[Rfam]
RNA sequence: AAUGUGGUGGCCUCAUUUGGCUGGUGUGGUACAGAGAAACCAGCCGUGUUUACAUGGCCAUCACAUG
Numbered sequence: 001a002a003u004g005u006g007g008u009g010g011c012c013u014c015a016u017u018u019g020g021c022u023g024g025u026g027u028g029g030u031a032c033a034g035a036g037a038a039a040c041c042a043g044c045c046g047u048g049u050u051u052a053c054a055u056g057g058c059c060a061u062c063a064c065a066u067g
Base pairs, nucleotide, nucleotide: 002066003065004064005063006062007061009059010058011057012056015049016048019045020044021043022042023041024040025039026032027031

A member of the RNA family "MAT2A 3'UTR stem loop F" from Poecilia formosa, 67 nucleotides long. Rfam 15.1 lists 403 matches to the family in 255 species. A search with the family's covariance model found it, with a score of 59 bits. The source organism's lineage runs through Eukaryota, Percomorphaceae, Cyprinodontiformes, Poeciliinae and Poecilia. The base pairs follow the family's consensus structure, which is taken from published work. For this family Rfam cites "New families of human regulatory RNA structures identified by comparative analysis of vertebrate genomes" (Parker et al., Genome Res, 2011).